[Rfam]
RNA sequence: ACCGGUCCUCGGUAGUGGUUCCCAGGCUUCAAUCCUGGGCACUUCGAUCGAAGACCGGC
Numbered sequence: 001a002c003c004g005g006u007c008c009u010c011g012g013u014a015g016u017g018g019u020u021c022c023c024a025g026g027c028u029u030c031a032a033u034c035c036u037g038g039g040c041a042c043u044u045c046g047a048u049c050g051a052a053g054a055c056c057g058g059c
Stems, first nucleotide, its partner, number of pairs: 002058006009051005017043003021039006028032001